[Rfam]
RNA sequence: CUCCAUGCUUCCAUGGGACCUGCCAUUGUGGCAGCCUCCCUUCCUAUUCAUGGUAGAAUAACCGUCACCUUGCUUUUUGGCAUAGCUCCCCCACCAUGCCAUUGGGGAGAGAUUCUGACUUGGGCAAGUAACAGGU
Numbered sequence: 001c002u003c004c005a006u007g008c009u010u011c012c013a014u015g016g017g018a019c020c021u022g023c024c025a026u027u028g029u030g031g032c033a034g035c036c037u038c039c040c041u042u043c044c045u046a047u048u049c050a051u052g053g054u055a056g057a058a059u060a061a062c063c064g065u066c067a068c069c070u071u072g073c074u075u076u077u078u079g080g081c082a083u084a085g086c087u088c089c090c091c092c093a094c095c096a097u098g099c100c101a102u103u104g105g106g107g108a109g110a111g112a113u114u115c116u117g118a119c120u121u122g123g124g125c126a127a128g129u130a131a132c133a134g135g136u
Stems, first nucleotide, its partner, number of pairs: 003053005015040004020034005071133002074130001077127003081122002086111003091106001094105003
Dot-bracket structure: ..(((((.......((((.(((((.....)))))..))))........))))).................((.(..(((.((...(((..(..(((......))))..))).........))..)))..).))...
Small nucleolar RNA SNORA24: a 136-nucleotide sequence from Varanus komodoensis. Rfam classes the family as an H/ACA-box small nucleolar RNA. Gene Ontology terms of the family: RNA processing and nucleolus. Taxonomically the source falls in Varanus (Eukaryota, Bilateria, Dipnotetrapodomorpha, Lepidosauria). Pairs were carried over by alignment from the consensus structure, which was predicted with RNAfold. ACA24 is a member of the H/ACA class of snoRNA that guide the sites of modification of uridines to pseudouridines.